[Rfam]
RNA sequence: GCAUGGAUGAAUUCUGUGUCACUGUCAGUAGUGGAUGCAGUCAGACACCAUGCAAAAGCAUCCUUUCACUUCUUUACUAAGAGUGAGUGCUGUCCUGUGCCUCACCUACUCAAUAGAGGAGUGAAUAUAAGU
Numbered sequence: 001g002c003a004u005g006g007a008u009g010a011a012u013u014c015u016g017u018g019u020c021a022c023u024g025u026c027a028g029u030a031g032u033g034g035a036u037g038c039a040g041u042c043a044g045a046c047a048c049c050a051u052g053c054a055a056a057a058g059c060a061u062c063c064u065u066u067c068a069c070u071u072c073u074u075u076a077c078u079a080a081g082a083g084u085g086a087g088u089g090c091u092g093u094c095c096u097g098u099g100c101c102u103c104a105c106c107u108a109c110u111c112a113a114u115a116g117a118g119g120a121g122u123g124a125a126u127a128u129a130a131g132u
Stems, first nucleotide, its partner, number of pairs: 001053006014040006065125003069121007082114001084112005089106001091104002
Small nucleolar RNA SNORA15: a 132-nucleotide RNA sequence from Salmo trutta. On this family, see Huttenhofer et al., EMBO J 2001: "RNomics: an experimental approach that identifies 201 candidates for novel, small, non-messenger RNAs in mouse". ACA15 is a member of the H/ACA class of snoRNA that guide the sites of modification of uridines to pseudouridines. It scores 65 bits against the family's covariance model. Rfam classes the family as an H/ACA-box small nucleolar RNA. The base pairs follow the family's consensus structure, which was predicted with RNAfold.